[Rfam]
RNA sequence: GUGAAUAUUGGGCAAACCUGCCGAAAGGCAGGGACGCAAAGCUACGGGUCUAACGACAAUGAAUUUUGCCUAUGAUCGCCAUGCCGCCAAA
Numbered sequence: 001g002u003g004a005a006u007a008u009u010g011g012g013c014a015a016a017c018c019u020g021c022c023g024a025a026a027g028g029c030a031g032g033g034a035c036g037c038a039a040a041g042c043u044a045c046g047g048g049u050c051u052a053a054c055g056a057c058a059a060u061g062a063a064u065u066u067u068g069c070c071u072a073u074g075a076u077c078g079c080c081a082u083g084c085c086g087c088c089a090a091a
Stems, first nucleotide, its partner, number of pairs: 012037002017032006041084002046080002048076003055070001057068002

Overview: c-di-GMP-I riboswitch aptamer: a 91-nucleotide RNA sequence from Propionispora vibrioides. The source organism's lineage runs through Bacteria, Bacillati, Negativicutes, Selenomonadales and Propionispora. Pairs were carried over by alignment from the consensus structure, which is taken from published work.